[Rfam]
RNA sequence: CUCUUAUCAAGAGUCGGGGGAGGAAUCUGGUCCGUGGAUCCCGCAGCAACCGUUACAUGGUAACAAGGUGCUAAUUCCAGCAAGCUUAUGCUUGAAAGAUGAGUG
Numbered sequence: 001c002u003c004u005u006a007u008c009a010a011g012a013g014u015c016g017g018g019g020g021a022g023g024a025a026u027c028u029g030g031u032c033c034g035u036g037g038a039u040c041c042c043g044c045a046g047c048a049a050c051c052g053u054u055a056c057a058u059g060g061u062a063a064c065a066a067g068g069u070g071c072u073a074a075u076u077c078c079a080g081c082a083a084g085c086u087u088a089u090g091c092u093u094g095a096a097a098g099a100u101g102a103g104u105g
Stems, first nucleotide, its partner, number of pairs: 001105001003103006013044001015043004022033003027080004045072004050068002052064004076097001081094005
The family of this 105-nucleotide RNA from Oceanobacillus halophilus is "SAM riboswitch aptamer (S box leader)". The base pairs follow the family's consensus structure, which is taken from published work. A search with the family's covariance model found it, with a score of 86 bits.